[Rfam]
RNA sequence: CGGAGGACUGAGAAGGUUGAGCAGCUUGUGCUGUGCUGUUACAACUGGUUAUAACCUCCAAGAGUAACGCACAAACCACUCGAUUGAGCAUCUUUGUCAUGAGCUGAUUUGUAGUGUUUUUGUGAACAAAGA
Numbered sequence: 001c002g003g004a005g006g007a008c009u010g011a012g013a014a015g016g017u018u019g020a021g022c023a024g025c026u027u028g029u030g031c032u033g034u035g036c037u038g039u040u041a042c043a044a045c046u047g048g049u050u051a052u053a054a055c056c057u058c059c060a061a062g063a064g065u066a067a068c069g070c071a072c073a074a075a076c077c078a079c080u081c082g083a084u085u086g087a088g089c090a091u092c093u094u095u096g097u098c099a100u101g102a103g104c105u106g107a108u109u110u111g112u113a114g115u116g117u118u119u120u121u122g123u124g125a126a127c128a129a130a131g132a
Stems, first nucleotide, its partner, number of pairs: 002059005015046004020040006070124003074120002078112002085107001087105003091102002